The record is a 52-nucleotide RNA from Capsicum baccatum, which matches "MIR1886 microRNA precursor family" in Rfam. Pairs were carried over by alignment from the consensus structure, which was predicted with RNAalifold. A search with the family's covariance model found it, with a score of 64 bits.
RNA sequence: UGAGAUUCAAUCAACGUUUGGGCAUGUGAUUUAACGUUGAUUGAAUCUCGUG
Numbered sequence: 001u002g003a004g005a006u007u008c009a010a011u012c013a014a015c016g017u018u019u020g021g022g023c024a025u026g027u028g029a030u031u032u033a034a035c036g037u038u039g040a041u042u043g044a045a046u047c048u049c050g051u052g
Stems, first nucleotide, its partner, number of pairs: 001050017018029003